[Rfam]
Nucleotides: 107
Base pairs, nucleotide, nucleotide: 001107002106003105004104005103006102007101008100013041015040016039017038021031022030023029025083026082027081028080042075043074044073045072047071048070049067050066051065052064053063054062079099084096085095086094087093
Number, partner (000 for none) and nucleotide at each position: 001107u002106u003105c004104u005103u006102a007101u008100c009000a010000a011000g012000a013041g014000a015040g016039g017038u018000g019000g020000a021031g022030g023029g024000a025083c026082u027081g028080g029023c030022c031021c032000u033000a034000u035000g036000a037000u038017g039016c040015c041013c042075g043074g044073c045072a046000a047071c048070c049067u050066g051065a052064a053063u054062a055000a056000a057000u058000u059000u060000u061000a062054u063053a064052u065051u066050c067049a068000a069000u070048g071047g072045u073044g074043c075042c076000a077000a078000u079099u080028c081027c082026a083025g084096c085095a086094g087093g088000a089000a090000u091000a092000c093087c094086c095085u096084g097000a098000a099079a100008g101007a102006u103005g104004a105003g106002a107001g